[Rfam]
Rfam assigns this 63-nucleotide RNA sequence from Eleutherodactylus coqui to the family "Selenocysteine insertion sequence 1". The incorporation of selenocysteine into a protein sequence is directed by an in-frame UGA codon (usually a stop codon) within the coding region of the mRNA. Selenoprotein mRNAs contain a conserved secondary structure in the 3' UTR that is required for the distinction of UGA stop from UGA selenocysteine. The selenocysteine insertion sequence (SECIS) is around 60 nt in length and adopts a hairpin structure which is sufficiently well-defined and conserved to act as a computational screen for selenoprotein genes. A search with the family's covariance model found it, with a score of 40 bits. By type it is a cis-regulatory element. Its family is annotated with selenocysteine incorporation in the Gene Ontology. Pairs were carried over by alignment from the consensus structure, which is taken from published work. For this family Rfam cites "A novel RNA structural motif in the selenocysteine insertion element of eukaryotic selenoprotein mRNAs" (Walczak et al., RNA, 1996).

RNA sequence: GUUGCAUCCAUGAAGGCUGAAGCAUAAACUACAAAAUAGGGGCUUCCGUCUGAUGCCCGCAAU
Dot-bracket structure: (((((.........(((.(((((.....(((.....)))..))))).)))........)))))